[Rfam]
RNA sequence: AAAUGUGCUCUUUCAGUAUUUUUCUAGUAGGUUUCCUCAAGGAGAAAGUCCAC
Numbered sequence: 001a002a003a004u005g006u007g008c009u010c011u012u013u014c015a016g017u018a019u020u021u022u023u024c025u026a027g028u029a030g031g032u033u034u035c036c037u038c039a040a041g042g043a044g045a046a047a048g049u050c051c052a053c
Stems, first nucleotide, its partner, number of pairs: 030050005036044003
Shown here is a 53-nucleotide RNA sequence from Salvelinus namaycush, a member of the family "U7 small nuclear RNA".
Animal histone pre-mRNAs are spliced by a different mechanism than nuclear pre-mRNAs and self-splicing introns.
NCBI's taxonomy places the organism under Eukaryota, Craniata, Euteleostomi, Teleostei, Salvelinus.
For this family Rfam cites "U7 snRNAs: a computational survey" (Marz et al., Genomics Proteomics Bioinformatics, 2007).
A search with the family's covariance model found it, with a score of 36 bits.